Rfam assigns this 80-nucleotide sequence from Sarcophilus harrisii to the family "mir-150 microRNA precursor family".
[Rfam]
RNA sequence: UCCCGGAGCCCCUUCUCCCAACCCUCGUACCAGAGUCCAUCCGAGACCCGGUACGGGCUGUGGGGGAUGGGGAGUCGGGG
Numbered sequence: 001u002c003c004c005g006g007a008g009c010c011c012c013u014u015c016u017c018c019c020a021a022c023c024c025u026c027g028u029a030c031c032a033g034a035g036u037c038c039a040u041c042c043g044a045g046a047c048c049c050g051g052u053a054c055g056g057g058c059u060g061u062g063g064g065g066g067a068u069g070g071g072g073a074g075u076c077g078g079g080g
Stems, first nucleotide, its partner, number of pairs: 010071003014067002016064003022057002026055006
The organism belongs to Sarcophilus, within Eukaryota.
Its family is annotated with miRNA-mediated post-transcriptional gene silencing and RISC complex in the Gene Ontology.